A member of the RNA family "Makes More Granules Regulator RNA (mmgR)" from Sphingomonas sp. Root241, 75 nucleotides long. By type it is a small RNA.

RNA sequence: AGGACGUGCCUUUCAGGCAUCCUCUCCUAAAACUUUCCCGGCGGGUCCUUGUGGCCCGCCUUUUUUUUGCCCCUC
Numbered sequence: 001a002g003g004a005c006g007u008g009c010c011u012u013u014c015a016g017g018c019a020u021c022c023u024c025u026c027c028u029a030a031a032a033c034u035u036u037c038c039c040g041g042c043g044g045g046u047c048c049u050u051g052u053g054g055c056c057c058g059c060c061u062u063u064u065u066u067u068u069g070c071c072c073c074u075c
Stems, first nucleotide, its partner, number of pairs: 008018004040060008
On this family, see Corbino et al., Genome Biol 2005: "Evidence for a second class of S-adenosylmethionine riboswitches and other regulatory RNA motifs in alpha-proteobacteria".